Shown here is a 59-nucleotide RNA from Glaciihabitans arcticus, a member of the family "msiK RNA".
Pairs were carried over by alignment from the consensus structure, which is taken from published work.
A search with the family's covariance model found it, with a score of 62 bits.
The source organism's lineage runs through Bacteria, Actinomycetota, Micrococcales, Microbacteriaceae and Glaciihabitans.
RNA sequence: GCCGCCAUUCCAUUCACUACGGAUCGUCCGGCACGUACCUGCCGGUGAAGGAGCAUUAA
Dot-bracket structure: .........((.((((...........((((((......))))))))))))........